[Rfam]
RNA: Small nucleolar RNA SNORD25
RNA sequence: GUGGCAGUGAUGAGCCCUAACAGACCUGUAAUGAUUCUUGUGUAUAUGAUCGCUUGAUUCAAAGAACAUCUAAGGGACUGAGUUGU
Dot-bracket structure: (((((............................................................................)))))